[Rfam]
RNA: Small nucleolar RNA Z105
RNA sequence: GGGAAAUGAGGAUGAAUUAUGAAAGUCUGAUUAACGUGAUAAUCAAUCACCUCCUACUCAUUCUGA
Numbered sequence: 001g002g003g004a005a006a007u008g009a010g011g012a013u014g015a016a017u018u019a020u021g022a023a024a025g026u027c028u029g030a031u032u033a034a035c036g037u038g039a040u041a042a043u044c045a046a047u048c049a050c051c052u053c054c055u056a057c058u059c060a061u062u063c064u065g066a
Base pairs, nucleotide, nucleotide: 006061007060008059009058024043027038